A member of the RNA family "c-di-GMP-I riboswitch aptamer", 77 nucleotides long. The match comes from Rfam's covariance-model search (36 bits).

[Rfam]
RNA sequence: AUGCUAACAAAGCAAAGCUGGCAAGCUAGCAACGCAAAGCUAUUAAGCUAGCAUUCUAGCAAUUCAAAGCUACCAAA
Numbered sequence: 001a002u003g004c005u006a007a008c009a010a011a012g013c014a015a016a017g018c019u020g021g022c023a024a025g026c027u028a029g030c031a032a033c034g035c036a037a038a039g040c041u042a043u044u045a046a047g048c049u050a051g052c053a054u055u056c057u058a059g060c061a062a063u064u065c066a067a068a069g070c071u072a073c074c075a076a077a
Stems, first nucleotide, its partner, number of pairs: 012035002017030005038071004043067001048059004